[Rfam]
RNA: c-di-GMP-I riboswitch aptamer
RNA sequence: UAUGGAAAAAAGCAAACCAUUCGAAAGAAUGGGACGCAAAGUGUGGAGUCUAACGAGUAUAGAUCACUAUACUUCUAUGAUUGUCCUACCGCCCCG
Numbered sequence: 001u002a003u004g005g006a007a008a009a010a011a012g013c014a015a016a017c018c019a020u021u022c023g024a025a026a027g028a029a030u031g032g033g034a035c036g037c038a039a040a041g042u043g044u045g046g047a048g049u050c051u052a053a054c055g056a057g058u059a060u061a062g063a064u065c066a067c068u069a070u071a072c073u074u075c076u077a078u079g080a081u082u083g084u085c086c087u088a089c090c091g092c093c094c095c096g
Stems, first nucleotide, its partner, number of pairs: 012037002017032006041089003045086003048081003055075003
Dot-bracket structure: ...........((...((((((....))))))...))...(((.((((((....(((...............)))...)))..)))))).......